[Rfam]
RNA sequence: AUGAAGUUUUCGAGAGAUGAUUUUAAGACUGUUUAUUGCUAAUCAGAAAUGACCUAAAUAAUUGUUAAACAGUAUGCACUUAAUGCACUUAAAAUAGCCGAAGGAACAAGUAUUUUAUCUAGCCGAUAAGAUAUGAAAUUCUCAGGCAAAAGUAUCGGGAAUGGACA
Numbered sequence: 001a002u003g004a005a006g007u008u009u010u011c012g013a014g015a016g017a018u019g020a021u022u023u024u025a026a027g028a029c030u031g032u033u034u035a036u037u038g039c040u041a042a043u044c045a046g047a048a049a050u051g052a053c054c055u056a057a058a059u060a061a062u063u064g065u066u067a068a069a070c071a072g073u074a075u076g077c078a079c080u081u082a083a084u085g086c087a088c089u090u091a092a093a094a095u096a097g098c099c100g101a102a103g104g105a106a107c108a109a110g111u112a113u114u115u116u117a118u119c120u121a122g123c124c125g126a127u128a129a130g131a132u133a134u135g136a137a138a139u140u141c142u143c144a145g146g147c148a149a150a151a152g153u154a155u156c157g158g159g160a161a162u163g164g165a166c167a
Stems, first nucleotide, its partner, number of pairs: 006162008020095008097147003100143002104141003110134010
Shown here is a 167-nucleotide RNA from Clostridiaceae bacterium 14S0207, a member of the family "Glycine riboswitch aptamer". A search with the family's covariance model found it, with a score of 42 bits. Its family is annotated with glycine biosynthetic process in the Gene Ontology. About the family: This family represents the bacterial glycine riboswitch.